[Rfam]
RNA sequence: GGGUUAGCUAUAGCUCAGCGGUUAUAUCAUUGCAUUGCAAGUAUUGGUUGCACCGAACAGAUGUUCGAGACCCGUGGGCACUAUCUAAUUUUUAA
Numbered sequence: 001g002g003g004u005u006a007g008c009u010a011u012a013g014c015u016c017a018g019c020g021g022u023u024a025u026a027u028c029a030u031u032g033c034a035u036u037g038c039a040a041g042u043a044u045u046g047g048u049u050g051c052a053c054c055g056a057a058c059a060g061a062u063g064u065u066c067g068a069g070a071c072c073c074g075u076g077g078g079c080a081c082u083a084u085c086u087a088a089u090u091u092u093u094a095a
Stems, first nucleotide, its partner, number of pairs: 002090006013079004018075004027068002
RNA: Vault RNA